[Rfam]
This 97-nucleotide RNA sequence from Equus caballus belongs to the Rfam family "mir-9058 microRNA precursor family". A search with the family's covariance model found it, with a score of 87 bits. The base pairs follow the family's consensus structure, which was predicted with RNAalifold. The source organism's lineage runs through Eukaryota, Eumetazoa, Tetrapoda, Amniota and Equus.

RNA sequence: GUGGUUGCUGGGUGGGGGCUCUCUACUAGUGCUGUAAAGAGGCUUUCGCUGAGGCUGCUGUGAGACUGUAGAGUUUCCCCCUGGGCCAUGGAGCCAG
Numbered sequence: 001g002u003g004g005u006u007g008c009u010g011g012g013u014g015g016g017g018g019c020u021c022u023c024u025a026c027u028a029g030u031g032c033u034g035u036a037a038a039g040a041g042g043c044u045u046u047c048g049c050u051g052a053g054g055c056u057g058c059u060g061u062g063a064g065a066c067u068g069u070a071g072a073g074u075u076u077c078c079c080c081c082u083g084g085g086c087c088a089u090g091g092a093g094c095c096a097g
Stems, first nucleotide, its partner, number of pairs: 002096005007086003010082002014080005021073006028067002032064002036061001038059002041056006